[Rfam]
RNA sequence: GAAGACCCUGUUGAGCUUGACUCUAGUCUGGUGUUGUAAGGAGACUCUGUAGGUUGUAGCAAAGUGGGAGGUCGCUCGCGCGAUCGUCGCUGAAAUACCACUACCCUGUUUGUUUCCUUGCUUACUCGGUUGAGUGAAAACAAAGCGCAGUCGAUAUUAUCGGCGACGCAAUGUUUUCUGGAGCCAAGCGUGUGGAGUGUGAGCUCCCCGCGUGAUCCAGUCCGAGGACAGCGCCAGGCGGGGAGUUUGACUGGGGCGGUACACCUGUCAAAGAAUAACGCAGGUGUCCUAAGGCCAGCUCAGCGAGGACAGAAACCUCGCGUAGAGCAAAAGGGCAAAAGCUGGCUUGAUCCUGAUGUUCAGUACGCAUGGGGACUGCGAAAGCACGGCCUAUCGAUCGUCUUGCGUAAAGAGUUUUUAGCAAGAUGUGCCAGAAAAGUUUCCACAGGGAUAACUGGUUUGUGGCAGCCGAGCGUCCACAGCGACGCUGCUUUUUGAUUCAUCGAUGUCGGCUCUUCCUAUCAUUGUGAAGCAGAAAUUACAAAGUGUUGGAUUGUUCACCCACUAACAGGGAACGUGAGCUGGGUUUA
Number, nucleotide and partner (000 for none) at each position: 001g000002a000003a000004g000005a000006c000007c449008c448009u447010g446011u000012u445013g444014a441015g440016c439017u438018u437019g000020a246021c245022u244023c243024u000025a000026g000027u238028c237029u236030g235031g234032u233033g232034u000035u000036g121037u120038a119039a118040g117041g116042a115043g114044a113045c112046u000047c000048u000049g000050u108051a107052g105053g104054u103055u000056g000057u000058a000059g000060c000061a000062a000063a102064g101065u100066g099067g098068g000069a000070g085071g084072u083073c082074g081075c080076u000077c000078g000079c000080g075081c074082g073083a072084u071085c070086g000087u000088c000089g000090c000091u000092g000093a000094a000095a000096u000097a000098c067099c066100a065101c064102u063103a054104c053105c052106c000107u051108g050109u000110u000111u000112g045113u044114u043115u042116c041117c040118u039119u038120g037121c036122u000123u000124a000125c226126u225127c224128g223129g000130u000131u000132g000133a000134g000135u000136g000137a000138a000139a000140a000141c000142a000143a000144a000145g000146c000147g000148c000149a000150g000151u000152c000153g000154a000155u000156a000157u000158u000159a000160u000161c000162g000163g000164c000165g000166a000167c000168g000169c000170a000171a000172u000173g000174u000175u000176u000177u000178c000179u000180g000181g000182a000183g000184c000185c000186a000187a000188g000189c000190g000191u000192g000193u000194g000195g000196a000197g000198u000199g000200u000201g000202a000203g000204c000205u000206c000207c000208c000209c000210g000211c000212g000213u000214g000215a000216u000217c000218c000219a000220g000221u000222c000223c128224g127225a126226g125227g000228a000229c000230a000231g000232c033233g032234c031235c030236a029237g028238g027239c000240g000241g000242g000243g023244a022245g021246u020247u000248u000249g262250a260251c259252u258253g000254g000255g000256g000257c000258g252259g251260u250261a000262c249263a285264c284265c283266u282267g281268u280269c000270a000271a000272a000273g000274a000275a000276u000277a000278a000279c000280g268281c267282a266283g265284g264285u263286g000287u000288c389289c388290u000291a000292a000293g000294g346295c345296c344297a343298g342299c341300u326301c325302a000303g321304c320305g319306a318307g317308g316309a000310c000311a000312g000313a000314a000315a000316c308317c307318u306319c305320g304321c303322g000323u000324a000325g301326a300327g336328c335329a000330a000331a000332a000333g000334g000335g328336c327337a000338a000339a000340a000341g299342c298343u297344g296345g295346c294347u000348u000349g000350a000351u375352c374353c373354u372355g000356a370357u369358g368359u367360u000361c000362a000363g000364u000365a000366c000367g359368c358369a357370u356371g000372g354373g353374g352375a351376c000377u386378g000379c384380g000381a000382a000383a000384g379385c000386a377387c000388g289389g288390c000391c000392u000393a000394u000395c000396g000397a000398u000399c000400g427401u426402c425403u424404u423405g422406c000407g000408u420409a419410a418411a000412g000413a000414g000415u000416u000417u000418u410419u409420a408421g000422c405423a404424a403425g402426a401427u400428g000429u000430g000431c000432c000433a000434g000435a000436a000437a018438a017439g016440u015441u014442u000443c000444c013445a012446c010447a009448g008449g007450g000451a000452u000453a000454a000455c000456u000457g000458g499459u498460u497461u000462g496463u000464g492465g491466c490467a489468g488469c487470c000471g000472a000473g483474c482475g000476u000477c000478c000479a000480c000481a000482g474483c473484g000485a000486c000487g469488c468489u467490g466491c465492u464493u000494u000495u000496u462497g460498a459499u458500u000501c000502a000503u000504c000505g000506a000507u000508g000509u000510c585511g583512g582513c581514u580515c577516u574517u573518c572519c571520u570521a000522u000523c548524a547525u000526u000527g542528u541529g540530a539531a000532g000533c000534a000535g000536a000537a000538a000539u530540u529541a528542c527543a000544a000545a000546g000547u524548g523549u000550u564551g563552g562553a000554u560555u000556g000557u000558u000559c000560a554561c000562c552563c551564a550565c000566u000567a000568a000569c000570a520571g519572g518573g517574a516575a000576c000577g515578u000579g000580a514581g513582c512583u511584g000585g510586g000587u000588u000589u000590a000
Shown here is a 590-nucleotide part of an RNA from Chrysodeixis includens, a member of the family "Archaeal large subunit ribosomal RNA". A search with the family's covariance model found it, with a score of 1158 bits. The base pairs follow the family's consensus structure, which is taken from published work. NCBI's taxonomy places the organism under Eukaryota, Protostomia, Obtectomera, Noctuidae, Chrysodeixis.